RNA sequence: AGAUGGAAGGCGUCGCCGGCAAUCGUCGCCCCCGCCGACGGCCCUUCCUGGGGAGCGAGCCGCAAUGCUCGCCCCCCUCUUGCUACCUUCCGGUGGAAUGCGCCCCCCUCCGUCGGAAGGCCUAGGGCGGUGAAGUCCCCCAGCUUCACCGCCCACUCUU
Number, nucleotide and partner (000 for none) at each position: 001a000002g000003a000004u000005g000006g000007a000008a000009g045010g044011c000012g042013u041014c040015g039016c000017c037018g036019g035020c034021a000022a000023u000024c000025g000026u000027c000028g000029c000030c000031c000032c000033c000034g020035c019036c018037g017038a000039c015040g014041g013042c012043c000044c010045u009046u000047c000048c000049u000050g000051g076052g075053g074054a000055g072056c071057g070058a069059g068060c000061c067062g066063c000064a000065a000066u062067g061068c059069u058070c057071g056072c055073c000074c053075c052076c051077c000078u000079c000080u000081u124082g123083c000084u000085a000086c120087c119088u000089u000090c116091c115092g114093g113094u000095g111096g110097a109098a000099u000100g000101c000102g000103c000104c000105c000106c000107c000108c000109u097110c096111c095112g000113u093114c092115g091116g090117a000118a000119g087120g086121c000122c000123u082124a081125g154126g153127g152128c151129g150130g149131u148132g147133a146134a145135g144136u143137c000138c000139c000140c000141c000142a000143g136144c135145u134146u133147c132148a131149c130150c129151g128152c127153c126154c125155a000156c000157u000158c000159u000160u000
The record is a 160-nucleotide RNA sequence from Bradyrhizobium sp. Leo170, which matches "Bradyrhizobiaceae sRNA BjrC80" in Rfam.
It scores 133 bits against the family's covariance model.
The source organism's lineage runs through Bacteria, Pseudomonadati, Pseudomonadota, Alphaproteobacteria and Bradyrhizobium.
Rfam classes the family as a small RNA.